[Rfam]
RNA sequence: GGAGAAAAUACAUACUUCUUUACAUUCCAUAGCGUUAUAUGUUCAUAUGGGUACAUAAAGAAGUAUGUACUCUACAC
Numbered sequence: 001g002g003a004g005a006a007a008a009u010a011c012a013u014a015c016u017u018c019u020u021u022a023c024a025u026u027c028c029a030u031a032g033c034g035u036u037a038u039a040u041g042u043u044c045a046u047a048u049g050g051g052u053a054c055a056u057a058a059a060g061a062a063g064u065a066u067g068u069a070c071u072c073u074a075c076a077c
Stems, first nucleotide, its partner, number of pairs: 007071001009069014027050005
Rfam assigns this 77-nucleotide sequence from Aquarana catesbeiana to the family "mir-1 microRNA precursor family". The family has 137 seed sequences and 4,474 matches in Rfam 15.1. The base pairs follow the family's consensus structure, which was predicted with RNAalifold. A search with the family's covariance model found it, with a score of 49 bits. A reference for the family is Lee and Ambros (2001), "An extensive class of small RNAs in Caenorhabditis elegans", Science. About the family: This family represents the microRNA (miRNA) mir-1 family. miRNAs are transcribed as ~70nt precursors (modelled here) and subsequently processed by the Dicer enzyme to give a ~22nt product. In this case the mature sequence comes from the 3' arm of the precursor. The extents of the hairpin precursors are not generally known and are estimated based on hairpin prediction. The products are thought to have regulatory roles through complementarity to mRNA. The involvement of Dicer in miRNA processing suggests a relationship with the phenomenon of RNA interference. miRNAs are numbered based on the sequence of the mature RNA. This family also contains the mir-206 from human, which appears to be related to mir-1. NCBI's taxonomy places the organism under Eukaryota, Eumetazoa, Vertebrata, Ranidae, Aquarana.